[Rfam]
RNA sequence: UGAUUUGAUAUAUGUAAGUCGCUCUGGAUAAGAGCGUCUGCUAAAUGACGUAAA
Numbered sequence: 001u002g003a004u005u006u007g008a009u010a011u012a013u014g015u016a017a018g019u020c021g022c023u024c025u026g027g028a029u030a031a032g033a034g035c036g037u038c039u040g041c042u043a044a045a046u047g048a049c050g051u052a053a054a
Stems, first nucleotide, its partner, number of pairs: 013043001014041003020036006

Overview
This 54-nucleotide sequence from Salmo salar belongs to the Rfam family "UnaL2 LINE 3' element". From the family's description: The eel long interspersed element (LINE) UnaL2 and its partner short interspersed element (SINE) share a conserved 3' tail containing a stem-loop that is critical for their retrotransposition. Presumably, the first step of retrotransposition is the recognition of their 3' tails by UnaL2-encoded reverse transcriptase. Rfam links the family to the GO term transposition, RNA-mediated. Pairs were carried over by alignment from the consensus structure, which is taken from published work.